[Rfam]
The record is a 160-nucleotide sequence from Glycine max, which matches "MIR4371 microRNA precursor family" in Rfam. Pairs were carried over by alignment from the consensus structure, which was predicted with RNAalifold. The source organism's lineage runs through Eukaryota, Euphyllophyta, Pentapetalae, rosids and Glycine subgen. Soja.
RNA sequence: CUGUUAAGUGAUGACGCGAUAAAUGAAGUGUGUCACGUCAUCAUGUCCAAACACUGACGCAUCAUUGUCAUGUCAUCACCUUCAACAACAUGGUAAUGACAUAUUAGUGAUUGGGCGUGAUGAUAUGACACUUCAUCUAUCACGUCAUUAUUUAACAGAA
Numbered sequence: 001c002u003g004u005u006a007a008g009u010g011a012u013g014a015c016g017c018g019a020u021a022a023a024u025g026a027a028g029u030g031u032g033u034c035a036c037g038u039c040a041u042c043a044u045g046u047c048c049a050a051a052c053a054c055u056g057a058c059g060c061a062u063c064a065u066u067g068u069c070a071u072g073u074c075a076u077c078a079c080c081u082u083c084a085a086c087a088a089c090a091u092g093g094u095a096a097u098g099a100c101a102u103a104u105u106a107g108u109g110a111u112u113g114g115g116c117g118u119g120a121u122g123a124u125a126u127g128a129c130a131c132u133u134c135a136u137c138u139a140u141c142a143c144g145u146c147a148u149u150a151u152u153u154a155a156c157a158g159a160a
Base pairs, nucleotide, nucleotide: 001158002157003156004155005154006153007152008151009150010149011148012147013146014145015144016143018141019140020139021138023136024135025134026133027132028131029130032129033128034127035126037124038123039122040121041120042119043118044117045116046115047114048113050111052109053108054107056105057104059102072089073088076085